A member of the RNA family "Bacterial RNase P class A" from Prevotella sp. P3-120, 362 nucleotides long. Rfam links the family to the GO terms ribonuclease P activity, tRNA processing and dimeric ribonuclease P complex. It scores 202 bits against the family's covariance model. It is annotated as a ribozyme. Ribonuclease P (RNase P) is a ubiquitous endoribonuclease, found in archaea, bacteria and eukarya as well as chloroplasts and mitochondria.
RNA sequence: ACAGUGUUUCGGUCUGCCGCUGGCAUCAGCAAUGGUGCGAGAGGAAAGUCCGGGCAGCAUAGGACGUCCCACUUCCGAAAACAGAAGCAGUUGGCGACAGCUGGAUAUGGAAGAAGAGAAUGACCGCCCGCAAGGGUAAGGGUGAGAAGGUGGUGUAAGAGACCACCAGCCGACGGGUGAUCGUCGGGCUGUUCCAUCUGGGAGCUGCAAGUUCACGUAAACCAUCGUCUGAGGGUUGUCCGCCCGAGUAACAACGAUGGAGGGUAGAAUGCUAGAGACGUAGGGUGACCUGCGUAGUAGAUAAAUGGCAGACGCCUUGCCUUAGCAAGGAACAGAACCCGGCUUACAGAAACACUGUUUAC
Numbered sequence: 001a002c003a004g005u006g007u008u009u010c011g012g013u014c015u016g017c018c019g020c021u022g023g024c025a026u027c028a029g030c031a032a033u034g035g036u037g038c039g040a041g042a043g044g045a046a047a048g049u050c051c052g053g054g055c056a057g058c059a060u061a062g063g064a065c066g067u068c069c070c071a072c073u074u075c076c077g078a079a080a081a082c083a084g085a086a087g088c089a090g091u092u093g094g095c096g097a098c099a100g101c102u103g104g105a106u107a108u109g110g111a112a113g114a115a116g117a118g119a120a121u122g123a124c125c126g127c128c129c130g131c132a133a134g135g136g137u138a139a140g141g142g143u144g145a146g147a148a149g150g151u152g153g154u155g156u157a158a159g160a161g162a163c164c165a166c167c168a169g170c171c172g173a174c175g176g177g178u179g180a181u182c183g184u185c186g187g188g189c190u191g192u193u194c195c196a197u198c199u200g201g202g203a204g205c206u207g208c209a210a211g212u213u214c215a216c217g218u219a220a221a222c223c224a225u226c227g228u229c230u231g232a233g234g235g236u237u238g239u240c241c242g243c244c245c246g247a248g249u250a251a252c253a254a255c256g257a258u259g260g261a262g263g264g265u266a267g268a269a270u271g272c273u274a275g276a277g278a279c280g281u282a283g284g285g286u287g288a289c290c291u292g293c294g295u296a297g298u299a300g301a302u303a304a305a306u307g308g309c310a311g312a313c314g315c316c317u318u319g320c321c322u323u324a325g326c327a328a329g330g331a332a333c334a335g336a337a338c339c340c341g342g343c344u345u346a347c348a349g350a351a352a353c354a355c356u357g358u359u360u361a362c
Stems, first nucleotide, its partner, number of pairs: 001358010011347001012313007020041002023038006046345003050342005055207004062241004067203005072087004089102005103198002108196005124141002126137004149167006169189001170187007211270004222260005233245004278295007